[Rfam]
RNA sequence: GGAAGAUACUGCUGAAGGGACAGCAACCCGUCUUGAAAACGGGAGCAAGUUAACACUUGGGGGUUCGAUUCCUCUAUCUUCC
Numbered sequence: 001g002g003a004a005g006a007u008a009c010u011g012c013u014g015a016a017g018g019g020a021c022a023g024c025a026a027c028c029c030g031u032c033u034u035g036a037a038a039a040c041g042g043g044a045g046c047a048a049g050u051u052a053a054c055a056c057u058u059g060g061g062g063g064u065u066c067g068a069u070u071c072c073u074c075u076a077u078c079u080u081c082c
Stems, first nucleotide, its partner, number of pairs: 001082008010025005027043005046059005060074004